FMN riboswitch aptamer (RFN element): a 123-nucleotide sequence from Bacteroidales bacterium WCE2008. The organism belongs to Bacteroidales, within Bacteria. Rfam's curators write: The RFN element is a highly conserved domain that is found frequently in the 5'-untranslated regions of prokaryotic mRNAs that encode for flavin mononucleotide (FMN) biosynthesis and transport proteins.
Nucleotides: 123
Base pairs, nucleotide, nucleotide: 003121004120005119006118007117009115010114017029018028019027031103032102033092034091035049036048037047038046044090045089053067054066072088074086075085076084094106095105096104
Number, partner (000 for none) and nucleotide at each position: 001000a002000u003121a004120u005119c006118u007117c008000u009115u010114c011000a012000g013000g014000g015000c016000a017029g018028g019027g020000u021000g022000u023000a024000a025000u026000c027019c028018c029017c030000u031103a032102c033092u034091g035049g036048c037047g038046g039000u040000g041000a042000c043000a044090g045089u046038c047037c048036g049035c050000g051000a052000c053067u054066c055000c056000c057000c058000u059000u060000u061000u062000u063000g064000g065000g066054g067053a068000c069000u070000g071000a072088a073000c074086c075085g076084g077000u078000g079000a080000a081000a082000u083000u084076c085075c086074g087000a088072u089045a090044c091034c092033a093000a094106c095105g096104g097000u098000g099000a100000c101000a102032g103031u104096c105095c106094g107000g108000a109000u110000g111000g112000a113000a114010g115009a116000c117007g118006a119005g120004a121003u122000a123000u